RNA sequence: GUAAAGAGACCUACUGCGAAGCAGGUUUUUACUAUACUAGAUUUGCCUCACGCUCGCACCGACCAAAAUUUGAGCGUAGGGCUUUUU
Numbered sequence: 001g002u003a004a005a006g007a008g009a010c011c012u013a014c015u016g017c018g019a020a021g022c023a024g025g026u027u028u029u030u031a032c033u034a035u036a037c038u039a040g041a042u043u044u045g046c047c048u049c050a051c052g053c054u055c056g057c058a059c060c061g062a063c064c065a066a067a068a069u070u071u072g073a074g075c076g077u078a079g080g081g082c083u084u085u086u087u
Base pairs, nucleotide, nucleotide: 005030006029007028008027009026010025011024012023016022017021045082046081047080048079050077051076052075053074054073055072056071058069
RNA: S. pyogenes small RNA 779816